[Rfam]
RNA: gut-2 RNA
RNA sequence: GACCCGCGCCGAAUUGGCGGCGCGGAAGAGCUAGUGGAGCUGUGAGC
Numbered sequence: 001g002a003c004c005c006g007c008g009c010c011g012a013a014u015u016g017g018c019g020g021c022g023c024g025g026a027a028g029a030g031c032u033a034g035u036g037g038a039g040c041u042g043u044g045a046g047c
Stems, first nucleotide, its partner, number of pairs: 004025008029041004
Dot-bracket structure: ...((((((((......))))))))...((((.....))))......